[Rfam]
RNA sequence: CUCUGGAGAGAACGAGCAAGCCGGAUAAGCAUCCAGGCCGAUCGUCACCCAAGGGGAAACUCGUUGCCGCUUGACCGUAUGAAUGGCUGGCUGGCGCGGGGUAACUCUCAGGUACAAAGGACAGAG
Numbered sequence: 001c002u003c004u005g006g007a008g009a010g011a012a013c014g015a016g017c018a019a020g021c022c023g024g025a026u027a028a029g030c031a032u033c034c035a036g037g038c039c040g041a042u043c044g045u046c047a048c049c050c051a052a053g054g055g056g057a058a059a060c061u062c063g064u065u066g067c068c069g070c071u072u073g074a075c076c077g078u079a080u081g082a083a084u085g086g087c088u089g090g091c092u093g094g095c096g097c098g099g100g101g102u103a104a105c106u107c108u109c110a111g112g113u114a115c116a117a118a119g120g121a122c123a124g125a126g
Base pairs, nucleotide, nucleotide: 001126002125003124004123005122012045013044014043015042047113048112049111051108054107055106056105060100061099062098063097064096
RNA: Glycine riboswitch aptamer
Organism: Paenibacillaceae bacterium GAS479